[Rfam]
RNA: Plastid-psbA-1 3UTR RNA
Organism: Ziziphus jujuba
RNA sequence: CACAAACUACAAACAAACGGAUAAGACUUUGGUAUUAAUGUAUACUGAGUUAUUGAACAUAAAGGAGCAAUAAUCAAUUUCUUGUUCUAGCAAGAAGUUUGGUAUUGCUCCUUU
Numbered sequence: 001c002a003c004a005a006a007c008u009a010c011a012a013a014c015a016a017a018c019g020g021a022u023a024a025g026a027c028u029u030u031g032g033u034a035u036u037a038a039u040g041u042a043u044a045c046u047g048a049g050u051u052a053u054u055g056a057a058c059a060u061a062a063a064g065g066a067g068c069a070a071u072a073a074u075c076a077a078u079u080u081c082u083u084g085u086u087c088u089a090g091c092a093a094g095a096a097g098u099u100u101g102g103u104a105u106u107g108c109u110c111c112u113u114u
Base pairs, nucleotide, nucleotide: 008021010019061114062113063112064111065110066109067108068107069106070105071104072103076099077098079096080095081094082093083092